A member of the RNA family "SAM riboswitch aptamer (S box leader)" from Salimicrobium jeotgali, 120 nucleotides long. The match comes from Rfam's covariance-model search (86 bits). The organism belongs to Salimicrobium, within Bacteria. Rfam's curators write: The SAM riboswitch is found upstream of a number of genes which code for proteins involved in methionine or cysteine biosynthesis in Gram-positive bacteria.
RNA sequence: UUCUUAUCCAGAGAGGCGGAGGGACUGGCCCUUUGAAGCCCGGCAACCAUCCUGCUGAUGUGAAUCAGUGUGAACGGUGCCAAUUCCUGUAGAAUGGAUAUCCAUUCUAAGAGAUGAGAG
Number, nucleotide and partner (000 for none) at each position: 001u120002u119003c118004u117005u116006a115007u114008c113009c000010a000011g000012a000013g041014a000015g040016g039017c038018g000019g000020a000021g031022g030023g029024a000025c089026u000027g087028g086029c023030c022031c021032u000033u000034u000035g000036a000037a000038g017039c016040c015041c013042g081043g080044c079045a078046a000047c077048c076049a000050u072051c000052c070053u000054g000055c000056u000057g000058a000059u000060g000061u000062g000063a000064a000065u000066c000067a000068g000069u000070g052071u000072g050073a000074a000075c000076g048077g047078u045079g044080c043081c042082a000083a000084u000085u112086c028087c027088u000089g025090u109091a108092g107093a106094a105095u104096g000097g000098a000099u000100a000101u000102c000103c000104a095105u094106u093107c092108u091109a090110a000111g000112a085113g008114a007115u006116g005117a004118g003119a002120g001